[Rfam]
RNA sequence: GGCCUGUGAUGGCUGUUGGCAUGUAUUGUCUGAGCGUGAAUCUGAAGCUCUAGAAUUACUCUGAGGCCCG
Numbered sequence: 001g002g003c004c005u006g007u008g009a010u011g012g013c014u015g016u017u018g019g020c021a022u023g024u025a026u027u028g029u030c031u032g033a034g035c036g037u038g039a040a041u042c043u044g045a046a047g048c049u050c051u052a053g054a055a056u057u058a059c060u061c062u063g064a065g066g067c068c069c070g
Stems, first nucleotide, its partner, number of pairs: 001068004
The family of this 70-nucleotide RNA from Chlamydotis macqueenii is "Small nucleolar RNA SNORD45".
The source organism's lineage runs through Eukaryota, Deuterostomia, Dipnotetrapodomorpha, Dinosauria and Chlamydotis.
The family's RNA type in Rfam is C/D-box small nucleolar RNA.
For this family Rfam cites "Purified box C/D snoRNPs are able to reproduce site-specific 2'-O-methylation of target RNA in vitro" (Galardi et al., Mol Cell Biol, 2002).